RNA sequence: AUGCGAAGGUCCCAGCGGAGAGAUGGAGCACUCUGUCAAUUGAGAUCUCUCCAACAAUUUAAAAUUUUCCUUCGCAAAUUGAUAUCCGAAUCGUAGGAUGCCCUUAAUUUUAUUGUUGGAGCAUCUAGAACCCUCGGAUAAAUACAU
Numbered sequence: 001a002u003g004c005g006a007a008g009g010u011c012c013c014a015g016c017g018g019a020g021a022g023a024u025g026g027a028g029c030a031c032u033c034u035g036u037c038a039a040u041u042g043a044g045a046u047c048u049c050u051c052c053a054a055c056a057a058u059u060u061a062a063a064a065u066u067u068u069c070c071u072u073c074g075c076a077a078a079u080u081g082a083u084a085u086c087c088g089a090a091u092c093g094u095a096g097g098a099u100g101c102c103c104u105u106a107a108u109u110u111u112a113u114u115g116u117u118g119g120a121g122c123a124u125c126u127a128g129a130a131c132c133c134u135c136g137g138a139u140a141a142a143u144a145c146a147u
Base pairs, nucleotide, nucleotide: 003075004074005073006072007071008070009069011020013018026051027050028049031044032043033042035040085138086137087136088135089134097125098124100122101121103119104118106116
Dot-bracket structure: ..(((((((.(.(....).).....(((..(((.(....).)))....))).................))))))).........(((((.......((.((.((.(.........).)).)).))........))))).........
Shown here is a 147-nucleotide RNA from Tripterygium wilfordii, a member of the family "Small nucleolar RNA snoR145". The match comes from Rfam's covariance-model search (101 bits). It is annotated as an H/ACA-box small nucleolar RNA. Its family is annotated with nucleolus and RNA processing in the Gene Ontology.